[Rfam]
Notes:
The family of this 85-nucleotide RNA sequence from Hyalella azteca is "mir-46/mir-47/mir-281 microRNA precursor family". Gene Ontology terms of the family: RISC complex and miRNA-mediated post-transcriptional gene silencing. A reference for the family is Lau et al. (2001), "An abundant class of tiny RNAs with probable regulatory roles in Caenorhabditis elegans", Science. Taxonomically the source falls in Hyalella (Eukaryota, Opisthokonta, Protostomia, Communostraca).
RNA sequence: GAUCCUGUACUAUGAAGAGAGCUAUCCGUCGACAGUAUUGAUUAGAAUUAACUGUCAUGGAGUUGCUCUCUUUAUGGACAGGCAU
Numbered sequence: 001g002a003u004c005c006u007g008u009a010c011u012a013u014g015a016a017g018a019g020a021g022c023u024a025u026c027c028g029u030c031g032a033c034a035g036u037a038u039u040g041a042u043u044a045g046a047a048u049u050a051a052c053u054g055u056c057a058u059g060g061a062g063u064u065g066c067u068c069u070c071u072u073u074a075u076g077g078a079c080a081g082g083c084a085u
Base pairs, nucleotide, nucleotide: 014073015072016071017070018069020067021066022065025061026060027059028058031056032055033054035052036051